This 89-nucleotide RNA from Lysinibacillus alkalisoli belongs to the Rfam family "Glycine riboswitch aptamer". The base pairs follow the family's consensus structure. The match comes from Rfam's covariance-model search (65 bits). The source organism's lineage runs through Bacteria, Bacillota, Bacilli, Caryophanales and Lysinibacillus.

RNA sequence: AUGAAUGUACGGGGAGAGAGCCAAUGUGCCGCCGAAGGAGCAAGUAGUCAAACUAUGAAUCUCUCAGGCAAAAGGACUCGUACGUGACG
Numbered sequence: 001a002u003g004a005a006u007g008u009a010c011g012g013g014g015a016g017a018g019a020g021c022c023a024a025u026g027u028g029c030c031g032c033c034g035a036a037g038g039a040g041c042a043a044g045u046a047g048u049c050a051a052a053c054u055a056u057g058a059a060u061c062u063c064u065c066a067g068g069c070a071a072a073a074g075g076a077c078u079c080g081u082a083c084g085u086g087a088c089g
Base pairs, nucleotide, nucleotide: 006084007083008082009081010080011079012078013077020029021028031069032068033067034065035064038063039062040061044056045055